[Rfam]
RNA sequence: GCUAAAGUAUCUUCGACUAAGUACCGACACUUCCUGUGUCGAAUGUCGAAGUCACCACACAUGUGUA
Numbered sequence: 001g002c003u004a005a006a007g008u009a010u011c012u013u014c015g016a017c018u019a020a021g022u023a024c025c026g027a028c029a030c031u032u033c034c035u036g037u038g039u040c041g042a043a044u045g046u047c048g049a050a051g052u053c054a055c056c057a058c059a060c061a062u063g064u065g066u067a
Stems, first nucleotide, its partner, number of pairs: 011051007026040005056065003
Notes
Shown here is a 67-nucleotide RNA from Bacillus sp. J14TS2, a member of the family "Bacillaceae-1 RNA". By type it is a small RNA. The family's consensus secondary structure is taken from published work. The organism belongs to Bacillus, within Bacteria.